[Rfam]
RNA sequence: AUGUUAUCAAGAAAGGUGGAGGGAUUAGACCCUGUGAAGCCUUAGCAACCCUUUAUAUUUAAUAAAGAAGGUGCUACAUUCUACUUAAUUUCUAAUUCAUUUAUUAGUAUAUUGGAUAGAUAACUC
Numbered sequence: 001a002u003g004u005u006a007u008c009a010a011g012a013a014a015g016g017u018g019g020a021g022g023g024a025u026u027a028g029a030c031c032c033u034g035u036g037a038a039g040c041c042u043u044a045g046c047a048a049c050c051c052u053u054u055a056u057a058u059u060u061a062a063u064a065a066a067g068a069a070g071g072u073g074c075u076a077c078a079u080u081c082u083a084c085u086u087a088a089u090u091u092c093u094a095a096u097u098c099a100u101u102u103a104u105u106a107g108u109a110u111a112u113u114g115g116a117u118a119g120a121u122a123a124c125u126c
Stems, first nucleotide, its partner, number of pairs: 003124006013043005021032003026083004044075004049071002051067004079118001084115002087112001
SAM riboswitch aptamer (S box leader): a 126-nucleotide sequence from Tenacibaculum maritimum. The SAM riboswitch is found upstream of a number of genes which code for proteins involved in methionine or cysteine biosynthesis in Gram-positive bacteria. The SAM riboswitch acts at the level of transcription termination control. The predicted structure consists of a complex stem-loop region followed by a single stem loop terminator region. Pairs were carried over by alignment from the consensus structure, which is taken from published work.